The record is a 127-nucleotide RNA sequence from Klebsiella aerogenes, which matches "MicC RNA" in Rfam. The organism belongs to Klebsiella, within Bacteria. About the family: MicC (previously known as IS063) is located between the ompN and ydbK genes in E. coli. This family of Hfq-associated sRNA is thought to be a regulator of OmpC expression. Rfam classes the family as a small RNA.
RNA sequence: UGGGUUAUAUGCCUUUAUUGUCAUUUAAAAUUUAUAUUGUUGCCGUCUCAUUCAUAUCGAAUGAUUAAUUCGUCGGAAAAUGACAAGCCCGAAUAGUUUUACUAUUCGGGCUUUUUUUAUUGCGCCA
Numbered sequence: 001u002g003g004g005u006u007a008u009a010u011g012c013c014u015u016u017a018u019u020g021u022c023a024u025u026u027a028a029a030a031u032u033u034a035u036a037u038u039g040u041u042g043c044c045g046u047c048u049c050a051u052u053c054a055u056a057u058c059g060a061a062u063g064a065u066u067a068a069u070u071c072g073u074c075g076g077a078a079a080a081u082g083a084c085a086a087g088c089c090c091g092a093a094u095a096g097u098u099u100u101a102c103u104a105u106u107c108g109g110g111c112u113u114u115u116u117u118u119a120u121u122g123c124g125c126c127a
Base pairs, nucleotide, nucleotide: 007021008020009019010017011016043076044075045074047072082115083114085113086112087111088110089109090108091107092106093105094104095103096102